[Rfam]
RNA sequence: CAUGGCGACCGGGCCCCUCUGGCAAGUGUCUGCGGCACAUUUGCGAUGUCGGCGCUGAAA
Numbered sequence: 001c002a003u004g005g006c007g008a009c010c011g012g013g014c015c016c017c018u019c020u021g022g023c024a025a026g027u028g029u030c031u032g033c034g035g036c037a038c039a040u041u042u043g044c045g046a047u048g049u050c051g052g053c054g055c056u057g058a059a060a
Base pairs, nucleotide, nucleotide: 006054007053009052010051011050012049022044023043024042025041026040027039028038029037
RNA: terC RNA